[Rfam]
RNA sequence: GACAGUUUUGAGUGAUGUUACUUCUUUAAAUCGAGGAAGACAUCAGUUAAAUCUGUGCU
Numbered sequence: 001g002a003c004a005g006u007u008u009u010g011a012g013u014g015a016u017g018u019u020a021c022u023u024c025u026u027u028a029a030a031u032c033g034a035g036g037a038a039g040a041c042a043u044c045a046g047u048u049a050a051a052u053c054u055g056u057g058c059u
Stems, first nucleotide, its partner, number of pairs: 002056004007051004013045006021039007
This 59-nucleotide RNA from Triplophysa tibetana belongs to the Rfam family "mir-723 microRNA precursor family". The family's consensus secondary structure was predicted with RNAalifold. The source organism's lineage runs through Eukaryota, Deuterostomia, Osteoglossocephalai, Cypriniphysae and Triplophysa.